RNA sequence: GUCGCGCAAGCGCCGUAGGCAGGAGCGGGGGACCCAAGGUAAGUGCUGGGAGCGGUGGUUGACGCCGUGCCCGGCUAGGGGUGAAGUCACGGACGUGACAGGGCAACUCAACCGGCCCUAACCCGACAGCUCACCUCGCAGGCGUCGGUGAGGGGAUCG
Numbered sequence: 001g002u003c004g005c006g007c008a009a010g011c012g013c014c015g016u017a018g019g020c021a022g023g024a025g026c027g028g029g030g031g032a033c034c035c036a037a038g039g040u041a042a043g044u045g046c047u048g049g050g051a052g053c054g055g056u057g058g059u060u061g062a063c064g065c066c067g068u069g070c071c072c073g074g075c076u077a078g079g080g081g082u083g084a085a086g087u088c089a090c091g092g093a094c095g096u097g098a099c100a101g102g103g104c105a106a107c108u109c110a111a112c113c114g115g116c117c118c119u120a121a122c123c124c125g126a127c128a129g130c131u132c133a134c135c136u137c138g139c140a141g142g143c144g145u146c147g148g149u150g151a152g153g154g155g156a157u158c159g
Stems, first nucleotide, its partner, number of pairs: 011144004025139006035078001079124003087098004101118004

The record is a 159-nucleotide sequence from Streptomyces acidiscabies, which matches "c-di-AMP riboswitch aptamer (ydaO/yuaA leader)" in Rfam. The source organism's lineage runs through Bacteria, Actinomycetota, Actinomycetes, Kitasatosporales and Streptomyces. From the family's description: This family represents a conserved RNA structure found upstream of the ydaO and yuaA genes in Bacillus subtilis and related genes in other bacteria. A search with the family's covariance model found it, with a score of 72 bits.